[Rfam]
RNA sequence: AUGCCCUUUUAAAAGCAGUCCAGAGAGGCUGAGAAGGGGGAACACAAAGCGAUCGCUUUGUGGGGGCUUUUUUUGCCCAAACCCUCUUUGCAACAUCUGGCAAAGAGGGUUUUUGUUU
Numbered sequence: 001a002u003g004c005c006c007u008u009u010u011a012a013a014a015g016c017a018g019u020c021c022a023g024a025g026a027g028g029c030u031g032a033g034a035a036g037g038g039g040g041a042a043c044a045c046a047a048a049g050c051g052a053u054c055g056c057u058u059u060g061u062g063g064g065g066g067c068u069u070u071u072u073u074u075g076c077c078c079a080a081a082c083c084c085u086c087u088u089u090g091c092a093a094c095a096u097c098u099g100g101c102a103a104a105g106a107g108g109g110u111u112u113u114u115g116u117u118u
Stems, first nucleotide, its partner, number of pairs: 004038006016031005046059005079112013
The family of this 118-nucleotide sequence from Mesobacillus subterraneus is "PyrR binding site". Pairs were carried over by alignment from the consensus structure, which is taken from published work. For this family Rfam cites "Molecular recognition of pyr mRNA by the Bacillus subtilis attenuation regulatory protein PyrR" (Bonner et al., Nucleic Acids Res, 2001). Rfam's curators write: This family represents the PyrR binding site and terminator structure. The family's RNA type in Rfam is cis-regulatory element.